[Rfam]
RNA sequence: GCCUUGGUCGGAAACCAAGGCCUGUCUAAGGAG
Numbered sequence: 001g002c003c004u005u006g007g008u009c010g011g012a013a014a015c016c017a018a019g020g021c022c023u024g025u026c027u028a029a030g031g032a033g
Stems, first nucleotide, its partner, number of pairs: 001021008